[Rfam]
RNA sequence: CGAUCGGGAGGCCUCUGGUGGGACAGGGGCCGGGAAUGGAUCGCCCCGCCCUCUCGGAUGGCCGCGGCGCUGAUGCCCGACAGCGCCCGUG
Numbered sequence: 001c002g003a004u005c006g007g008g009a010g011g012c013c014u015c016u017g018g019u020g021g022g023a024c025a026g027g028g029g030c031c032g033g034g035a036a037u038g039g040a041u042c043g044c045c046c047c048g049c050c051c052u053c054u055c056g057g058a059u060g061g062c063c064g065c066g067g068c069g070c071u072g073a074u075g076c077c078c079g080a081c082a083g084c085g086c087c088c089g090u091g
Stems, first nucleotide, its partner, number of pairs: 001043005010031008063091005068085005
RNA: Rhodo-rpoB RNA